The family of this 302-nucleotide sequence from Xylaria arbuscula is "Group I catalytic intron". NCBI's taxonomy places the organism under Eukaryota, Opisthokonta, leotiomyceta, sordariomyceta, Xylaria.
RNA sequence: AUGAUAAGGUUGUAUGUACAGCCUAUUUGUGGAAGUGAACCUUCUGCUAUAAACCAUCAAAUUGCGGGAACACCCUAAAGCAAUCACAACCAAGUAGGAGUAGUAAUACGUCCUAUGGCUCAGGUAAUGACUCGAGGUAUGGUAAAAUCGUGGUUGAUUAUUUAAAAUGGGUUAUCCGCAGCCAAGCACCAAGUAUUAUAAAUAAUAAUGGUGUGCAGUUCAUCGACUAAAUGUUGGUUGGUGUCAGUUAAUAUUUAAACUUGAUGCUUAAGAUAUAGUCAGGCCUCAUCUGAAAGGAUGCA
Numbered sequence: 001a002u003g004a005u006a007a008g009g010u011u012g013u014a015u016g017u018a019c020a021g022c023c024u025a026u027u028u029g030u031g032g033a034a035g036u037g038a039a040c041c042u043u044c045u046g047c048u049a050u051a052a053a054c055c056a057u058c059a060a061a062u063u064g065c066g067g068g069a070a071c072a073c074c075c076u077a078a079a080g081c082a083a084u085c086a087c088a089a090c091c092a093a094g095u096a097g098g099a100g101u102a103g104u105a106a107u108a109c110g111u112c113c114u115a116u117g118g119c120u121c122a123g124g125u126a127a128u129g130a131c132u133c134g135a136g137g138u139a140u141g142g143u144a145a146a147a148u149c150g151u152g153g154u155u156g157a158u159u160a161u162u163u164a165a166a167a168u169g170g171g172u173u174a175u176c177c178g179c180a181g182c183c184a185a186g187c188a189c190c191a192a193g194u195a196u197u198a199u200a201a202a203u204a205a206u207a208a209u210g211g212u213g214u215g216c217a218g219u220u221c222a223u224c225g226a227c228u229a230a231a232u233g234u235u236g237g238u239u240g241g242u243g244u245c246a247g248u249u250a251a252u253a254u255u256u257a258a259a260c261u262u263g264a265u266g267c268u269u270a271a272g273a274u275a276u277a278g279u280c281a282g283g284c285c286u287c288a289u290c291u292g293a294a295a296g297g298a299u300g301c302a
Stems, first nucleotide, its partner, number of pairs: 007024007031041002052239005058233002063180006073171003181219002186214004194207005223281001225280005241267007249259001287300005
The family has 12 seed sequences and 5,602 matches in Rfam 15.1. Rfam's curators write: Group I catalytic introns are large self-splicing ribozymes. On this family, see Cate et al., Science 1996: "Crystal structure of a group I ribozyme domain: principles of RNA packing".